Record summary
The family of this 144-nucleotide RNA sequence from Paenochrobactrum gallinarii is "Alphaproteobacterial sRNA ar9". The source organism's lineage runs through Bacteria, Pseudomonadota, Alphaproteobacteria, Hyphomicrobiales and Paenochrobactrum. A reference for the family is del Val et al. (2012), "A survey of sRNA families in alpha-proteobacteria", RNA Biol. A search with the family's covariance model found it, with a score of 123 bits. It is annotated as a small RNA.
RNA sequence: ACAACUGAGAGAGUAGAACAAACUACUCUUACUACGCGGUCAAAGUCUUGGGAGGAUUGAUCUAGGCGCGAAUUACGCUGCCACCGGAAACGGGUACAGAUCGGGCGCGAAUUUAAUAGCAAGGCGAAAGCCUUGCUUUUUUUU
Numbered sequence: 001a002c003a004a005c006u007g008a009g010a011g012a013g014u015a016g017a018a019c020a021a022a023c024u025a026c027u028c029u030u031a032c033u034a035c036g037c038g039g040u041c042a043a044a045g046u047c048u049u050g051g052g053a054g055g056a057u058u059g060a061u062c063u064a065g066g067c068g069c070g071a072a073u074u075a076c077g078c079u080g081c082c083a084c085c086g087g088a089a090a091c092g093g094g095u096a097c098a099g100a101u102c103g104g105g106c107g108c109g110a111a112u113u114u115a116a117u118a119g120c121a122a123g124g125c126g127a128a129a130g131c132c133u134u135g136c137u138u139u140u141u142u143u144u
Stems, first nucleotide, its partner, number of pairs: 003144002011028006035109004045057004059102005065082003068078003084093003118137008